Record summary: This 132-nucleotide RNA from Carlito syrichta belongs to the Rfam family "Small nucleolar RNA U109". Rfam classes the family as an H/ACA-box small nucleolar RNA. A reference for the family is Gu et al. (2005), "A novel experimental approach for systematic identification of box H/ACA snoRNAs from eukaryotes", Nucleic Acids Res.
RNA sequence: UUGGAUGGGCGUUCUGCUUCUCUUUAAAGAGCACAGAUUUAUCCAUACCAUGCGACAUGAAUGAAAUGAGAAGUUUUCAGGGCUGCCAACCCCUUGGUUAAGGUUUUACAGUAGUAUAUUUUCUCUACAAUA
Numbered sequence: 001u002u003g004g005a006u007g008g009g010c011g012u013u014c015u016g017c018u019u020c021u022c023u024u025u026a027a028a029g030a031g032c033a034c035a036g037a038u039u040u041a042u043c044c045a046u047a048c049c050a051u052g053c054g055a056c057a058u059g060a061a062u063g064a065a066a067u068g069a070g071a072a073g074u075u076u077u078c079a080g081g082g083c084u085g086c087c088a089a090c091c092c093c094u095u096g097g098u099u100a101a102g103g104u105u106u107u108a109c110a111g112u113a114g115u116a117u118a119u120u121u122u123c124u125c126u127a128c129a130a131u132a
Stems, first nucleotide, its partner, number of pairs: 003053001005051004013035001015033005070125002073122001082112002088105004